[Rfam]
RNA: Small nucleolar RNA snoR60
Organism: Panicum virgatum
RNA sequence: CAGUAGAUGAUGAGCAUACUCGGAUUCCCUUUCAAGACAUCACAAUGGAUGAUGCAAAUUUUAGUUUCUGAUGCU
Numbered sequence: 001c002a003g004u005a006g007a008u009g010a011u012g013a014g015c016a017u018a019c020u021c022g023g024a025u026u027c028c029c030u031u032u033c034a035a036g037a038c039a040u041c042a043c044a045a046u047g048g049a050u051g052a053u054g055c056a057a058a059u060u061u062u063a064g065u066u067u068c069u070g071a072u073g074c075u
Stems, first nucleotide, its partner, number of pairs: 002075004